[Rfam]
RNA sequence: UAAGCGGACACCGAAAAGCUUAAAGAGUAGGUU
Numbered sequence: 001u002a003a004g005c006g007g008a009c010a011c012c013g014a015a016a017a018g019c020u021u022a023a024a025g026a027g028u029a030g031g032u033u
Base pairs, nucleotide, nucleotide: 002021003020004019005018010032011031012030

DUF805b RNA: a 33-nucleotide sequence from Paucihalobacter ruber. Rfam classes the family as a cis-regulatory element. It scores 36 bits against the family's covariance model. Lineage of the source: Bacteria > Pseudomonadati > Flavobacteriia > Flavobacteriaceae > Paucihalobacter.